[Rfam]
Rfam assigns this 301-nucleotide sequence from Paramuricea clavata to the family "Nuclear RNase P". Clan: RNaseP clan. By type it is a ribozyme. The base pairs follow the family's consensus structure, which is taken from published work. Gene Ontology terms of the family: ribonuclease P complex, tRNA processing and ribonuclease P activity.

RNA sequence: UCCGGGUGAAAUGCUCGCUUUAAAGGUUACAAACGUGGAGUUCUAGGACUCCUGCAAUUGCCCUUGGGAAGGUCUGAGACAAAGGUCAACCACGCUCUAGCAGGGCACCCUCCUAAUGUGAGGUGGUGGUUCACAAGAAACAUCCCUGGCAGGUUAUGGCACAUGAUACCCUGUUCACGUAGGGUAGAUGCUAUGUAACCUUGUCAAAGUUGGGAAGUGCCACGACCAGCUUAGUAAGUGCAAUAAGCGAGGUGGUAUGGUUUACAUACCAUAACUCAAUUCAGACUACUCUUCACCCGGA
Numbered sequence: 001u002c003c004g005g006g007u008g009a010a011a012u013g014c015u016c017g018c019u020u021u022a023a024a025g026g027u028u029a030c031a032a033a034c035g036u037g038g039a040g041u042u043c044u045a046g047g048a049c050u051c052c053u054g055c056a057a058u059u060g061c062c063c064u065u066g067g068g069a070a071g072g073u074c075u076g077a078g079a080c081a082a083a084g085g086u087c088a089a090c091c092a093c094g095c096u097c098u099a100g101c102a103g104g105g106c107a108c109c110c111u112c113c114u115a116a117u118g119u120g121a122g123g124u125g126g127u128g129g130u131u132c133a134c135a136a137g138a139a140a141c142a143u144c145c146c147u148g149g150c151a152g153g154u155u156a157u158g159g160c161a162c163a164u165g166a167u168a169c170c171c172u173g174u175u176c177a178c179g180u181a182g183g184g185u186a187g188a189u190g191c192u193a194u195g196u197a198a199c200c201u202u203g204u205c206a207a208a209g210u211u212g213g214g215a216a217g218u219g220c221c222a223c224g225a226c227c228a229g230c231u232u233a234g235u236a237a238g239u240g241c242a243a244u245a246a247g248c249g250a251g252g253u254g255g256u257a258u259g260g261u262u263u264a265c266a267u268a269c270c271a272u273a274a275c276u277c278a279a280u281u282c283a284g285a286c287u288a289c290u291c292u293u294c295a296c297c298c299g300g301a
Stems, first nucleotide, its partner, number of pairs: 001301004008294003014251007022065002025062002038051005074284005084227004094106004108125001110123002113120001126223005132217001146209002252272007